BsrG: a 254-nucleotide RNA from Evansella caseinilytica. The base pairs follow the family's consensus structure, which was predicted with WAR. By type it is a small RNA. A reference for the family is Saito et al. (2008), "Novel small RNA-encoding genes in the intergenic regions of Bacillus subtilis", Gene. The family has 6 seed sequences and 614 matches in Rfam 15.1. Lineage of the source: Bacteria > Bacillota > Bacilli > Caryophanales > Evansella.

RNA sequence: GCAAUGGAAUAGGUUGUUCAAGGGUGGCCGGUACACGCCCAUUUCAUCACGAGAGGCGGCGAUGCUGUAUGACGGUUUUUGGAUCGCUUAUCAUCAUGAUUUCGUUCAGUGCUUUAGUCAUUGCGAUCUUGUCAUUUUAUAAUAAGAAAAACGAAAACCGCCCUUGAGUGGAACCUCUGGCAGUUUUCGUUCAGGUGCUGCUCCUAUUAAAGAGAAACUACUAUUGCUUGACUGUCGAUGUUACAGCAUCGACA
Numbered sequence: 001g002c003a004a005u006g007g008a009a010u011a012g013g014u015u016g017u018u019c020a021a022g023g024g025u026g027g028c029c030g031g032u033a034c035a036c037g038c039c040c041a042u043u044u045c046a047u048c049a050c051g052a053g054a055g056g057c058g059g060c061g062a063u064g065c066u067g068u069a070u071g072a073c074g075g076u077u078u079u080u081g082g083a084u085c086g087c088u089u090a091u092c093a094u095c096a097u098g099a100u101u102u103c104g105u106u107c108a109g110u111g112c113u114u115u116a117g118u119c120a121u122u123g124c125g126a127u128c129u130u131g132u133c134a135u136u137u138u139a140u141a142a143u144a145a146g147a148a149a150a151a152c153g154a155a156a157a158c159c160g161c162c163c164u165u166g167a168g169u170g171g172a173a174c175c176u177c178u179g180g181c182a183g184u185u186u187u188c189g190u191u192c193a194g195g196u197g198c199u200g201c202u203c204c205u206a207u208u209a210a211a212g213a214g215a216a217a218c219u220a221c222u223a224u225u226g227c228u229u230g231a232c233u234g235u236c237g238a239u240g241u242u243a244c245a246g247c248a249u250c251g252a253c254a
Stems, first nucleotide, its partner, number of pairs: 001227005007221001009219001010217001017168008026158001034061001036058004071133005084099003109124003174195003202216001204214002233254009